[Rfam]
RNA sequence: UGAUGACCGUUCCUCUCACUGUCAUAAGCAUUAGACAGUGGGAUUUUGUGUCAUCAAAGAUUAAAGUUGGCUUUUUUCACUCAAGGUGUCUCUGGAUGGGUUUGGCUGUCUGUUGGCACUGUUGAAUUUUGCGGGGCCACACAUCC
Numbered sequence: 001u002g003a004u005g006a007c008c009g010u011u012c013c014u015c016u017c018a019c020u021g022u023c024a025u026a027a028g029c030a031u032u033a034g035a036c037a038g039u040g041g042g043a044u045u046u047u048g049u050g051u052c053a054u055c056a057a058a059g060a061u062u063a064a065a066g067u068u069g070g071c072u073u074u075u076u077u078c079a080c081u082c083a084a085g086g087u088g089u090c091u092c093u094g095g096a097u098g099g100g101u102u103u104g105g106c107u108g109u110c111u112g113u114u115g116g117c118a119c120u121g122u123u124g125a126a127u128u129u130u131g132c133g134g135g136g137c138c139a140c141a142c143a144u145c146c
Base pairs, nucleotide, nucleotide: 001056002055003054004053005052006051007050014043015042016041017040018039020037021036022035023034069138070137071136072135073134074133081125082124083123084122085120086119087118088117089116090115094111095110096109097108098107
RNA: Small nucleolar RNA SNORA79
Organism: Varanus komodoensis